[Rfam]
RNA sequence: AUGAGUGCCUGUCCACCCCAUUCUUUCCGCGGCUGCGCCGUACAUCAUGCCUCUGUGGUUGAGGCAGAGAGGCGCAACGCGAUGACCGAAGUCGAGCCGCUUGCCCCGUUUGCCGGGGCGGCGGCUUUUUUA
Numbered sequence: 001a002u003g004a005g006u007g008c009c010u011g012u013c014c015a016c017c018c019c020a021u022u023c024u025u026u027c028c029g030c031g032g033c034u035g036c037g038c039c040g041u042a043c044a045u046c047a048u049g050c051c052u053c054u055g056u057g058g059u060u061g062a063g064g065c066a067g068a069g070a071g072g073c074g075c076a077a078c079g080c081g082a083u084g085a086c087c088g089a090a091g092u093c094g095a096g097c098c099g100c101u102u103g104c105c106c107c108g109u110u111u112g113c114c115g116g117g118g119c120g121g122c123g124g125c126u127u128u129u130u131u132a
Stems, first nucleotide, its partner, number of pairs: 007038002009035001011033003014029001040078002048074004056067001058065002083094004095126006102120006
This 132-nucleotide RNA from Paraburkholderia phenazinium belongs to the Rfam family "Burkholderia sRNA 2". Upregulated in response to iron ion depletion. Predicted targets include MerR family transcriptional regulator. The family's consensus secondary structure was predicted with RNAfold. Rfam classes the family as a small RNA. The literature on the family includes a 2017 paper in Microbiology by Ghosh et al., "Identification of novel small RNAs in Burkholderia cenocepacia KC-01 expressed under iron limitation and oxidative stress conditions".